Nucleotides: 085
Base pairs, nucleotide, nucleotide: 012037013036017032018031019030020029021028022027040079041078042077043076047075048074049071050070051069056065057064058063
Number, partner (000 for none) and nucleotide at each position: 001000a002000a003000g004000c005000g006000a007000u008000a009000a010000a011000g012037g013036c014000a015000a016000a017032u018031u019030c020029a021028u022027c023000g024000a025000a026000a027022g028021g029020u030019g031018a032017a033000g034000a035000c036013g037012c038000a039000a040079a041078g042077c043076u044000a045000c046000a047075g048074g049071g050070a051069c052000u053000a054000a055000a056065g057064u058063c059000g060000a061000a062000a063058g064057a065056u066000u067000a068000u069051g070050u071049c072000a073000g074048c075047c076043a077042g078041u079040u080000a081000c082000c083000g084000a085000u